[Rfam]
RNA sequence: CUAUCCAGCAAGGCCGUCAACCACAUCCACUCCGUGUGGAAGGACUUGCUGGAAGACA
Numbered sequence: 001c002u003a004u005c006c007a008g009c010a011a012g013g014c015c016g017u018c019a020a021c022c023a024c025a026u027c028c029a030c031u032c033c034g035u036g037u038g039g040a041a042g043g044a045c046u047u048g049c050u051g052g053a054a055g056a057c058a
Stems, first nucleotide, its partner, number of pairs: 004053009014043002021039006
Background:
This 58-nucleotide RNA sequence from Orthohepacivirus hominis belongs to the Rfam family "Hepatitis C virus stem-loop SL8001 RNA". The family's RNA type in Rfam is cis-regulatory element. Lineage of the source: Viruses > Riboviria > Orthornavirae > Hepaciviridae > Orthohepacivirus. The literature on the family includes a 2016 paper in Mol Cell by Pirakitikulr et al., "The Coding Region of the HCV Genome Contains a Network of Regulatory RNA Structures". Even though Hepatitis C virus (HCV) SL8001 is not required for overall replication, conformational changes in this motif tune the initial rate of replication.